Shown here is a 94-nucleotide RNA sequence, a member of the family "Rhodo-rpoB RNA". The family's consensus secondary structure is taken from published work. The family's RNA type in Rfam is cis-regulatory element.
[Rfam]
RNA sequence: UGGUCGAGUGGCACGCGGUGGGACGCGCGCCGAGAAUGGACCCUGGUCUUGCCGUCACUGACGUGAACGUCGCUGUGCCCCGGCAGCGCGCGUU
Number, nucleotide and partner (000 for none) at each position: 001u000002g042003g041004u040005c039006g000007a000008g000009u000010g031011g030012c029013a000014c027015g026016c025017g024018g000019u000020g000021g000022g000023a000024c017025g016026c015027g014028c000029g012030c011031c010032g000033a000034g000035a000036a000037u000038g000039g005040a004041c003042c002043c000044u000045g000046g000047u000048c000049u000050u000051g000052c000053c000054g000055u000056c000057a000058c000059u000060g000061a000062c000063g000064u000065g000066a094067a093068c092069g091070u090071c088072g087073c086074u085075g084076u000077g000078c000079c000080c000081c000082g000083g000084c075085a074086g073087c072088g071089c000090g070091c069092g068093u067094u066